Source information
This 91-nucleotide RNA from Brachybacterium sp. SGAir0954 belongs to the Rfam family "Selenocysteine transfer RNA". The family's consensus secondary structure is taken from published work. Taxonomically the source falls in Brachybacterium (Bacteria, Actinomycetes, Micrococcales, Dermabacteraceae).
[Rfam]
RNA sequence: GGAGGCGUCCGUGUCCUGGUGGGCGCCGUGGUCUUCAAAACCAUCGAGCCCGAGCAUCUCGGGCUGGCGGGUUCGAUUCCCGUCCGCCUCC
Numbered sequence: 001g002g003a004g005g006c007g008u009c010c011g012u013g014u015c016c017u018g019g020u021g022g023g024c025g026c027c028g029u030g031g032u033c034u035u036c037a038a039a040a041c042c043a044u045c046g047a048g049c050c051c052g053a054g055c056a057u058c059u060c061g062g063g064c065u066g067g068c069g070g071g072u073u074c075g076a077u078u079c080c081c082g083u084c085c086g087c088c089u090c091c
Stems, first nucleotide, its partner, number of pairs: 001091007011026006028044005047065005068082004